The family of this 89-nucleotide RNA from Eragrostis curvula is "Small nucleolar RNA Z161/Z228". Taxonomically the source falls in Eragrostis (Eukaryota, Liliopsida, Petrosaviidae, Poaceae). It scores 80 bits against the family's covariance model. By type it is a C/D-box small nucleolar RNA.
RNA sequence: GGGCCAUGAUGAGAAACCAUGUGCAAUACUCACGACGGUCGUCUGAGACACUUUGUGUGUAAUGUUGCAGUCAUAUUUCUCUGAUGCCU
Numbered sequence: 001g002g003g004c005c006a007u008g009a010u011g012a013g014a015a016a017c018c019a020u021g022u023g024c025a026a027u028a029c030u031c032a033c034g035a036c037g038g039u040c041g042u043c044u045g046a047g048a049c050a051c052u053u054u055g056u057g058u059g060u061a062a063u064g065u066u067g068c069a070g071u072c073a074u075a076u077u078u079c080u081c082u083g084a085u086g087c088c089u
Base pairs, nucleotide, nucleotide: 001089002088003087004086049057050056051055
The family has 11 seed sequences and 630 matches in Rfam 15.1.